[Rfam]
RNA sequence: GAAGGAGGCAUCCAAAGGGAUCGCAUUGAUCCCAUCUCUGCACUAACGAACACCUCCCGCAUAUUUGGAUUUUGGAUCAUGCUAUCCCUUUGGAUACCUCCUU
Numbered sequence: 001g002a003a004g005g006a007g008g009c010a011u012c013c014a015a016a017g018g019g020a021u022c023g024c025a026u027u028g029a030u031c032c033c034a035u036c037u038c039u040g041c042a043c044u045a046a047c048g049a050a051c052a053c054c055u056c057c058c059g060c061a062u063a064u065u066u067g068g069a070u071u072u073u074g075g076a077u078c079a080u081g082c083u084a085u086c087c088c089u090u091u092g093g094a095u096a097c098c099u100c101c102u103u
Base pairs, nucleotide, nucleotide: 002103003102004101005100006099008097010095011094012093013092014091015090016089017088018087019086020085021084023082024081025080026079028078029077030076031075032074
RNA: mir-393 microRNA precursor family
Organism: Eucalyptus grandis